[Rfam]
RNA sequence: CGGGGGUGCCGGCAGACUCCCCGUAUCCAGACGCUCCCCGCGUCCAAGCUCUGC
Number, nucleotide and partner (000 for none) at each position: 001c023002g022003g021004g020005g019006g018007u000008g000009c000010c000011g000012g054013c053014a052015g051016a050017c000018u006019c005020c004021c003022c002023g001024u000025a000026u000027c000028c000029a000030g044031a043032c042033g041034c040035u000036c000037c000038c000039c000040g034041c033042g032043u031044c030045c000046a000047a000048g000049c000050u016051c015052u014053g013054c012